[Rfam]
ssnA RNA: a 48-nucleotide sequence. The base pairs follow the family's consensus structure, which is taken from published work. It is annotated as a cis-regulatory element. It is one of the family's seed sequences.
RNA sequence: UAUAGGUCGGCUGCAAGGAAGUGCUUCGCGCACGGGCUGAGCACUCUC
Numbered sequence: 001u002a003u004a005g006g007u008c009g010g011c012u013g014c015a016a017g018g019a020a021g022u023g024c025u026u027c028g029c030g031c032a033c034g035g036g037c038u039g040a041g042c043a044c045u046c047u048c
Base pairs, nucleotide, nucleotide: 008039009038010037011036012035021033022032023031024030
Dot-bracket structure: .......(((((........((((.....)))).))))).........